The family of this 217-nucleotide sequence is "RAGATH-7 RNA". It is one of the family's seed sequences. Pairs were carried over by alignment from the consensus structure, which is taken from published work.
RNA sequence: AAUUAAUUAUUAUUUAUCUUUAACUUAUAUGCACAGUAAAUUAUUGAUAUUUAAUAGUUAAAUAAUCCACGUGGUAAGGGGUCACAGUUAGGUUCACUGUGAUGUGCAACCCUUAUAAUGAGCAACCAAUCCUAAGCAAGUAGGGAGAAAUACUCUUAACCAUAAGUAGUGUUAACAUGGUGCUUGACAGUAUAAUACUAACUGACAAUAAGUAUUA
Numbered sequence: 001a002a003u004u005a006a007u008u009a010u011u012a013u014u015u016a017u018c019u020u021u022a023a024c025u026u027a028u029a030u031g032c033a034c035a036g037u038a039a040a041u042u043a044u045u046g047a048u049a050u051u052u053a054a055u056a057g058u059u060a061a062a063u064a065a066u067c068c069a070c071g072u073g074g075u076a077a078g079g080g081g082u083c084a085c086a087g088u089u090a091g092g093u094u095c096a097c098u099g100u101g102a103u104g105u106g107c108a109a110c111c112c113u114u115a116u117a118a119u120g121a122g123c124a125a126c127c128a129a130u131c132c133u134a135a136g137c138a139a140g141u142a143g144g145g146a147g148a149a150a151u152a153c154u155c156u157u158a159a160c161c162a163u164a165a166g167u168a169g170u171g172u173u174a175a176c177a178u179g180g181u182g183c184u185u186g187a188c189a190g191u192a193u194a195a196u197a198c199u200a201a202c203u204g205a206c207a208a209u210a211a212g213u214a215u216u217a
Base pairs, nucleotide, nucleotide: 001063003061004060005059006058007057008056009055010054011053012052015049016048023041025039026038027037077113078112079111080110082102083101084100085099086098087097130146131145132144133143137186138185139184140183141182159181160180161179162178163177193217194216195215196214197213198212199211